A member of the RNA family "Group II catalytic intron D1-D4-7" from Paraburkholderia sp. LEh10, 150 nucleotides long. For this family Rfam cites "Control of branch-site choice by a group II intron" (Chu et al., EMBO J, 2001). From the family's description: Group II introns are found in rRNA, tRNA and mRNA of organelles in fungi, plants and protists, and also in mRNA in bacteria. The pairing is the family consensus, mapped onto this sequence.
[Rfam]
RNA sequence: CCUGUUGUACGACCAACAGUUGCCUAUCCGGACGUGCGCGAUUGGUAACGAUCGGGUGCGAAGCUUCGGAGACAACGUACCCUUCAGUAGACGGUUCACCGUGGCGACACGGCAGGAAUCGACACUGCCAGCAGCCGUGCGGUGUGGGGG
Numbered sequence: 001c002c003u004g005u006u007g008u009a010c011g012a013c014c015a016a017c018a019g020u021u022g023c024c025u026a027u028c029c030g031g032a033c034g035u036g037c038g039c040g041a042u043u044g045g046u047a048a049c050g051a052u053c054g055g056g057u058g059c060g061a062a063g064c065u066u067c068g069g070a071g072a073c074a075a076c077g078u079a080c081c082c083u084u085c086a087g088u089a090g091a092c093g094g095u096u097c098a099c100c101g102u103g104g105c106g107a108c109a110c111g112g113c114a115g116g117a118a119u120c121g122a123c124a125c126u127g128c129c130a131g132c133a134g135c136c137g138u139g140c141g142g143u144g145u146g147g148g149g150g
Base pairs, nucleotide, nucleotide: 002019003018004017005016006015007014028069029068030067031066032065033060034059035058036057037056039054040053041052042051043050044049084091085090093120094119095118096117102109103108124143125142126141127140128139